[Rfam]
RNA sequence: GCAGCCAGGGAAGCGCAAGGCCCGCAGAACCCUCCGGGGUGCGGCGGGAGACGAGGUGAAGGUCAUCGAGAUUCUGCGGAUGCCUUCAGGGGGAAGCCACCCCCUCCCGAAACCACCCACUGCAAAGCGGCGGCGUGGUUAAGCAACACC
Numbered sequence: 001g002c003a004g005c006c007a008g009g010g011a012a013g014c015g016c017a018a019g020g021c022c023c024g025c026a027g028a029a030c031c032c033u034c035c036g037g038g039g040u041g042c043g044g045c046g047g048g049a050g051a052c053g054a055g056g057u058g059a060a061g062g063u064c065a066u067c068g069a070g071a072u073u074c075u076g077c078g079g080a081u082g083c084c085u086u087c088a089g090g091g092g093g094a095a096g097c098c099a100c101c102c103c104c105u106c107c108c109g110a111a112a113c114c115a116c117c118c119a120c121u122g123c124a125a126a127g128c129g130g131c132g133g134c135g136u137g138g139u140u141a142a143g144c145a146a147c148a149c150c
Stems, first nucleotide, its partner, number of pairs: 021048005027042001029040004058087005066076001068074002088105006111140006
Shown here is a 150-nucleotide sequence from Deinococcus ruber, a member of the family "glmS glucosamine-6-phosphate activated ribozyme aptamer".
This entry contains a glucosamine-6-phosphate activated ribozyme that is found in the mRNA for GlmS. GlmS is an enzyme that uses fructose-6-phosphate and glutamine to generate glucosamine-6-phosphate.
It is annotated as a riboswitch.
It scores 43 bits against the family's covariance model.
NCBI's taxonomy places the organism under Bacteria, Deinococcota, Deinococci, Deinococcaceae, Deinococcus.